RNA sequence: GGCUGUAUGGGUUCCUGGCAUGCUGAUUUGUAACUUCAGAGAAAAAUCACAUUGCCAGGGAUUACCACAGAGCU
Numbered sequence: 001g002g003c004u005g006u007a008u009g010g011g012u013u014c015c016u017g018g019c020a021u022g023c024u025g026a027u028u029u030g031u032a033a034c035u036u037c038a039g040a041g042a043a044a045a046a047u048c049a050c051a052u053u054g055c056c057a058g059g060g061a062u063u064a065c066c067a068c069a070g071a072g073c074u
Stems, first nucleotide, its partner, number of pairs: 001074002004071001006069001008067003011062010021051002024049006
Source information:
This 74-nucleotide RNA from Chanos chanos belongs to the Rfam family "mir-23 microRNA precursor family". The family has 83 seed sequences and 1,403 matches in Rfam 15.1. It scores 68 bits against the family's covariance model. Its family is annotated with gene silencing by miRNA and RISC complex in the Gene Ontology. On this family, see Chen et al., Genes Dev 2005: "The developmental miRNA profiles of zebrafish as determined by small RNA cloning".